Shown here is a 98-nucleotide RNA from Rhodopila globiformis, a member of the family "Glycine riboswitch aptamer". The match comes from Rfam's covariance-model search (59 bits). Taxonomically the source falls in Rhodopila (Bacteria, Pseudomonadati, Pseudomonadota, Alphaproteobacteria). This family represents the bacterial glycine riboswitch.
RNA sequence: GCACCCGCCGCGGGAGAGUGCGGGCUGCAACACAACCCGCCGCCGAAGGCGCAACCGGCCCCCGGAAACGCUCAGGCACCAGGGACCGUGGCGGGGUA
Numbered sequence: 001g002c003a004c005c006c007g008c009c010g011c012g013g014g015a016g017a018g019u020g021c022g023g024g025c026u027g028c029a030a031c032a033c034a035a036c037c038c039g040c041c042g043c044c045g046a047a048g049g050c051g052c053a054a055c056c057g058g059c060c061c062c063c064g065g066a067a068a069c070g071c072u073c074a075g076g077c078a079c080c081a082g083g084g085a086c087c088g089u090g091g092c093g094g095g096g097u098a
Stems, first nucleotide, its partner, number of pairs: 006093008020040004042077003045073002049071003055065002